[Rfam]
RNA: Streptomyces sRNA 4677
RNA sequence: GGGCCCGGCGGGCCACGAACUCCCCCUGAGAAACGGGAUAAAGAACUCCCGCCCACCCGCCCUUCCCCCAGGUCACCCGUAUGGGUGACCGGCUUGCGGGCCACGCACACCGGUCGUUACGUUCACCGCAACACAACAACCGCAAACAGACGACGGCCCCCGGCCGGGACUGGCAUCCCGAUCGAGGGCCUGACCGAUCAGGAAGAGACGACUUCCCG
Numbered sequence: 001g002g003g004c005c006c007g008g009c010g011g012g013c014c015a016c017g018a019a020c021u022c023c024c025c026c027u028g029a030g031a032a033a034c035g036g037g038a039u040a041a042a043g044a045a046c047u048c049c050c051g052c053c054c055a056c057c058c059g060c061c062c063u064u065c066c067c068c069c070a071g072g073u074c075a076c077c078c079g080u081a082u083g084g085g086u087g088a089c090c091g092g093c094u095u096g097c098g099g100g101c102c103a104c105g106c107a108c109a110c111c112g113g114u115c116g117u118u119a120c121g122u123u124c125a126c127c128g129c130a131a132c133a134c135a136a137c138a139a140c141c142g143c144a145a146a147c148a149g150a151c152g153a154c155g156g157c158c159c160c161c162g163g164c165c166g167g168g169a170c171u172g173g174c175a176u177c178c179c180g181a182u183c184g185a186g187g188g189c190c191u192g193a194c195c196g197a198u199c200a201g202g203a204a205g206a207g208a209c210g211a212c213u214u215c216c217c218g
Stems, first nucleotide, its partner, number of pairs: 001195001007061004073088006096127001099124002155190005161184002166179004201216005